[Rfam]
RNA sequence: UUGCAUGCUGGGGACUCUUGUUCUGCUCCUCAUUCUUUUGAGAAUAAAACUGUCUGUGGCAUGCUGUGUAAAAUAAAGGCAUUUUCAGAGCUGCUAACCAUGUAGUGAAGAUUAUGUGAUACUCUGUUUCUCCUACAAAA
Numbered sequence: 001u002u003g004c005a006u007g008c009u010g011g012g013g014a015c016u017c018u019u020g021u022u023c024u025g026c027u028c029c030u031c032a033u034u035c036u037u038u039u040g041a042g043a044a045u046a047a048a049a050c051u052g053u054c055u056g057u058g059g060c061a062u063g064c065u066g067u068g069u070a071a072a073a074u075a076a077a078g079g080c081a082u083u084u085u086c087a088g089a090g091c092u093g094c095u096a097a098c099c100a101u102g103u104a105g106u107g108a109a110g111a112u113u114a115u116g117u118g119a120u121a122c123u124c125u126g127u128u129u130c131u132c133c134u135a136c137a138a139a140a
Base pairs, nucleotide, nucleotide: 003064004063005062006061007060008059022046024044026042027041028040078133079132090120094116095114096113097112099110101108
Background: Small nucleolar RNA U109: a 140-nucleotide RNA sequence from Ovis aries. It is annotated as an H/ACA-box small nucleolar RNA. Gene Ontology terms of the family: RNA processing and nucleolus. The literature on the family includes a 2005 paper in Nucleic Acids Res by Gu et al., "A novel experimental approach for systematic identification of box H/ACA snoRNAs from eukaryotes". It scores 57 bits against the family's covariance model. The base pairs follow the family's consensus structure, which was predicted with WAR.